[Rfam]
The record is a 138-nucleotide RNA sequence, which matches "TPP riboswitch aptamer (THI element)" in Rfam.
RNA sequence: AUUCGGCACUACGGGUGCCCGUCCAUUGAUUAAGCAGGCCAUUGAUGGUGUUGUGAUCAAUUUGGCUCGGGCUGAGAAAGCACCGUUAACCACCUGAUCAGGGUAAUACCUGCGUAGGGAAGCUGCCGUACCUUUUUU
Numbered sequence: 001a002u003u004c005g006g007c008a009c010u011a012c013g014g015g016u017g018c019c020c021g022u023c024c025a026u027u028g029a030u031u032a033a034g035c036a037g038g039c040c041a042u043u044g045a046u047g048g049u050g051u052u053g054u055g056a057u058c059a060a061u062u063u064g065g066c067u068c069g070g071g072c073u074g075a076g077a078a079a080g081c082a083c084c085g086u087u088a089a090c091c092a093c094c095u096g097a098u099c100a101g102g103g104u105a106a107u108a109c110c111u112g113c114g115u116a117g118g119g120a121a122g123c124u125g126c127c128g129u130a131c132c133u134u135u136u137u138u
Stems, first nucleotide, its partner, number of pairs: 006126003010122001011086004016080001017072005093118004099112004
The family's consensus secondary structure is taken from published work.